[Rfam]
RNA sequence: CCGUUUGCAUCACGCGCCCGUCGCGCCUAUAUAGGGCUUGCCGGCAACGGCUAUGGCGAUAAACGGCUAGCGUAAUAAACCUAUUGGACCCGGGGGCAGUGCCCGGCGUCUCCACCAGAACUCCCCGUCGUGGCGGGCUCAUGGGGACGAAACAGGAUCGACAAGGGCGUAAAGGUUAGACUUUUGCUCGGCAUGGUACCACCGAUAUCGGGCCAUCCUAAUAGUUGCCAACGACAACUAUGCUAAGGUUGCUAUCGCUGCUUAAUGCGGCGCCGGCACCUGAACUAGAAGUCCUCCGGGCCUAGCAGUCCGACAGGCGGGGUUCGCAGGCACCUGGCAACAGAAGCCUGCACU
Numbered sequence: 001c002c003g004u005u006u007g008c009a010u011c012a013c014g015c016g017c018c019c020g021u022c023g024c025g026c027c028u029a030u031a032u033a034g035g036g037c038u039u040g041c042c043g044g045c046a047a048c049g050g051c052u053a054u055g056g057c058g059a060u061a062a063a064c065g066g067c068u069a070g071c072g073u074a075a076u077a078a079a080c081c082u083a084u085u086g087g088a089c090c091c092g093g094g095g096g097c098a099g100u101g102c103c104c105g106g107c108g109u110c111u112c113c114a115c116c117a118g119a120a121c122u123c124c125c126c127g128u129c130g131u132g133g134c135g136g137g138c139u140c141a142u143g144g145g146g147a148c149g150a151a152a153c154a155g156g157a158u159c160g161a162c163a164a165g166g167g168c169g170u171a172a173a174g175g176u177u178a179g180a181c182u183u184u185u186g187c188u189c190g191g192c193a194u195g196g197u198a199c200c201a202c203c204g205a206u207a208u209c210g211g212g213c214c215a216u217c218c219u220a221a222u223a224g225u226u227g228c229c230a231a232c233g234a235c236a237a238c239u240a241u242g243c244u245a246a247g248g249u250u251g252c253u254a255u256c257g258c259u260g261c262u263u264a265a266u267g268c269g270g271c272g273c274c275g276g277c278a279c280c281u282g283a284a285c286u287a288g289a290a291g292u293c294c295u296c297c298g299g300g301c302c303u304a305g306c307a308g309u310c311c312g313a314c315a316g317g318c319g320g321g322g323u324u325c326g327c328a329g330g331c332a333c334c335u336g337g338c339a340a341c342a343g344a345a346g347c348c349u350g351c352a353c354u
Stems, first nucleotide, its partner, number of pairs: 040051004055188005065181001067179005080167003084164003090106005107149007189204003194215003199211002320335004326351006